This 146-nucleotide sequence from Allomesorhizobium alhagi belongs to the Rfam family "Alphaproteobacterial sRNA BjrC1505". By type it is a small RNA. The pairing is the family consensus, mapped onto this sequence. NCBI's taxonomy places the organism under Bacteria, Hyphomicrobiales, Phyllobacteriaceae, Allomesorhizobium, Allomesorhizobium alhagi. It scores 74 bits against the family's covariance model.

RNA sequence: UCGCGGCCGUUAACCCACCGUUAAGCUUUACGGGCGUUUACUAUGCGCAUCCAGUGAUCUGGAUACUUACCGAGUGGUUUGGAGCCACUUCGUUUGACGCCUCCCUGUUAAACUCCUGAGAGCCGCUUUUCAGCGGCUCUUUUUUU
Numbered sequence: 001u002c003g004c005g006g007c008c009g010u011u012a013a014c015c016c017a018c019c020g021u022u023a024a025g026c027u028u029u030a031c032g033g034g035c036g037u038u039u040a041c042u043a044u045g046c047g048c049a050u051c052c053a054g055u056g057a058u059c060u061g062g063a064u065a066c067u068u069a070c071c072g073a074g075u076g077g078u079u080u081g082g083a084g085c086c087a088c089u090u091c092g093u094u095u096g097a098c099g100c101c102u103c104c105c106u107g108u109u110a111a112a113c114u115c116c117u118g119a120g121a122g123c124c125g126c127u128u129u130u131c132a133g134c135g136g137c138u139c140u141u142u143u144u145u146u
Base pairs, nucleotide, nucleotide: 002047003046004045005016006015017042022040023039024038025037026036050063051062052061053060072090073089074088075087076086077085096109097108098107099106118141119140120139121138122137123136124135125134126133127132